[Rfam]
RNA sequence: CACUUAUCCAGAAAGGCAGAGGGAAAUGGCCCUGUGAAGCCUUAGCAACCGACUCCGGCAACGACAGUAAAAGGUGCUAACUCCAUCCAGAAAAGGAUAGAUAAGAA
Numbered sequence: 001c002a003c004u005u006a007u008c009c010a011g012a013a014a015g016g017c018a019g020a021g022g023g024a025a026a027u028g029g030c031c032c033u034g035u036g037a038a039g040c041c042u043u044a045g046c047a048a049c050c051g052a053c054u055c056c057g058g059c060a061a062c063g064a065c066a067g068u069a070a071a072a073g074g075u076g077c078u079a080a081c082u083c084c085a086u087c088c089a090g091a092a093a094a095g096g097a098u099a100g101a102u103a104a105g106a107a
Base pairs, nucleotide, nucleotide: 003105004104005103006102007101008100013043014042015041016040017039021032022031023030026086027085028084029083044078045077046076047075049074050073052068053067054066082099087096088095